Overview: The family of this 84-nucleotide RNA from Aquarana catesbeiana is "mir-15 microRNA precursor family". About the family: This family represents the related mir-15a and mir-15b sequences. The organism belongs to Aquarana, within Eukaryota. The literature on the family includes a 2002 paper in Proc Natl Acad Sci U S A by Calin et al., "Frequent deletions and down-regulation of micro- RNA genes miR15 and miR16 at 13q14 in chronic lymphocytic leukemia". Clan: mir-15 clan. Pairs were carried over by alignment from the consensus structure, which was predicted with RNAalifold.

RNA sequence: ACCUGCUCUGCUUUAGCAGCACGUAAAUAUUGGGUGAUAAUAUAGAGAACCCCAAUAUUAUUGUGCUGCUUUAGUGUGGCAGAA
Numbered sequence: 001a002c003c004u005g006c007u008c009u010g011c012u013u014u015a016g017c018a019g020c021a022c023g024u025a026a027a028u029a030u031u032g033g034g035u036g037a038u039a040a041u042a043u044a045g046a047g048a049a050c051c052c053c054a055a056u057a058u059u060a061u062u063g064u065g066c067u068g069c070u071u072u073a074g075u076g077u078g079g080c081a082g083a084a
Base pairs, nucleotide, nucleotide: 003082004081005080006079015070016069017068018067019066020065021064022063023062026059027058028057029056030055031054032053033052034051